[Rfam]
RNA: Group II catalytic intron D1-D4-7
Organism: Hahella chejuensis
RNA sequence: CCGGUUGUGUGACCAACCGUAGCCUAGGGGCAGCGCAUUUCUGGCAACGGAUUUGUGUGAAGCGCCCUGACAAUGUACCCCCGCUUUAGCGGUGCCGUUUUAUCGUGAGGUGAACGGUAGAUACUGCCAGUAGCAAAGGCGGUUAAGGGG
Number, nucleotide and partner (000 for none) at each position: 001c000002c019003g018004g017005u016006u015007g014008u000009g000010u000011g000012a000013c000014c007015a006016a005017c004018c003019g002020u000021a000022g000023c000024c000025u000026a000027g068028g067029g066030g065031c064032a000033g058034c057035g056036c055037a054038u000039u000040u051041c050042u049043g048044g000045c000046a000047a000048c043049g042050g041051a040052u000053u000054u037055g036056u035057g034058u033059g000060a000061a000062g000063c000064g031065c030066c029067c028068u027069g000070a000071c000072a000073a000074u000075g000076u000077a000078c000079c000080c000081c092082c091083g090084c089085u000086u000087u000088a000089g084090c083091g082092g081093u119094g118095c117096c116097g000098u000099u000100u000101u000102a000103u110104c109105g000106u000107g000108a000109g104110g103111u000112g000113a000114a000115c000116g096117g095118u094119a093120g000121a000122u000123a143124c142125u141126g140127c139128c138129a000130g000131u000132a000133g000134c000135a000136a000137a000138g128139g127140c126141g125142g124143u123144u000145a000146a000147g000148g000149g000150g000